[Rfam]
RNA sequence: GCGGAUGGCCGGAUGGCCGCGUGCCCGCCAACGGGUGCGAGGAAAGUCCGGACUCCAUGAAGCAAAGGUGCCGGGUAACGCCCGGCCGGGGCAACCCGAGGGAAAGCGCCACAGAGAACAGACCGCCAUGCCUGCAUGGCAAGGGUGAAACGGUGGGGUAAGAGCCCACCGCGGACCGGGUAACCGGGACGGCACGGCAAGCCCCACCUGGAGCAAUGCCGAAUAGGGACCUCAUGCCGGGGCUGAUCCCACAGGGAUAUCGCCGCAGGGCCGCUUCAGCCCGAGGUCCGGGUUGGCAGCCAGACCCUGUCGGCAACGACAGGGCCAGAUGAAUGGUCAUCGCCGGGGCAACCCGGAACAGAAUCCGGCUUACAGGCCAUCCGCGCAA
Numbered sequence: 001g002c003g004g005a006u007g008g009c010c011g012g013a014u015g016g017c018c019g020c021g022u023g024c025c026c027g028c029c030a031a032c033g034g035g036u037g038c039g040a041g042g043a044a045a046g047u048c049c050g051g052a053c054u055c056c057a058u059g060a061a062g063c064a065a066a067g068g069u070g071c072c073g074g075g076u077a078a079c080g081c082c083c084g085g086c087c088g089g090g091g092c093a094a095c096c097c098g099a100g101g102g103a104a105a106g107c108g109c110c111a112c113a114g115a116g117a118a119c120a121g122a123c124c125g126c127c128a129u130g131c132c133u134g135c136a137u138g139g140c141a142a143g144g145g146u147g148a149a150a151c152g153g154u155g156g157g158g159u160a161a162g163a164g165c166c167c168a169c170c171g172c173g174g175a176c177c178g179g180g181u182a183a184c185c186g187g188g189a190c191g192g193c194a195c196g197g198c199a200a201g202c203c204c205c206a207c208c209u210g211g212a213g214c215a216a217u218g219c220c221g222a223a224u225a226g227g228g229a230c231c232u233c234a235u236g237c238c239g240g241g242g243c244u245g246a247u248c249c250c251a252c253a254g255g256g257a258u259a260u261c262g263c264c265g266c267a268g269g270g271c272c273g274c275u276u277c278a279g280c281c282c283g284a285g286g287u288c289c290g291g292g293u294u295g296g297c298a299g300c301c302a303g304a305c306c307c308u309g310u311c312g313g314c315a316a317c318g319a320c321a322g323g324g325c326c327a328g329a330u331g332a333a334u335g336g337u338c339a340u341c342g343c344c345g346g347g348g349c350a351a352c353c354c355g356g357a358a359c360a361g362a363a364u365c366c367g368g369c370u371u372a373c374a375g376g377c378c379a380u381c382c383g384c385g386c387a388a
Base pairs, nucleotide, nucleotide: 001384002383003382004381005380006379007378008377009376010375011373012341013340014339015338016337017336018335020039021038022037023036024035025034026033027032044371045370046369048368049367050366051365052364053213054212055211056210062276066209067208068207069206070205071085072084073083074082075081086100087098088097089096090095101204102203106202107201108198109197110196123144124143125140126139127138128137129136130135152170153169154168155167156166157165171193172191173190176187177186178185179184217298218297219296220295227289228288229287230286231285232284268282269281270280271279305324306323307322308321309320310319311318312317

Rfam assigns this 388-nucleotide RNA from Rhabdonatronobacter sediminivivens to the family "Bacterial RNase P class A".
Taxonomically the source falls in Rhabdonatronobacter (Bacteria, Pseudomonadati, Rhodobacterales, Paracoccaceae).
The family's consensus secondary structure is taken from published work.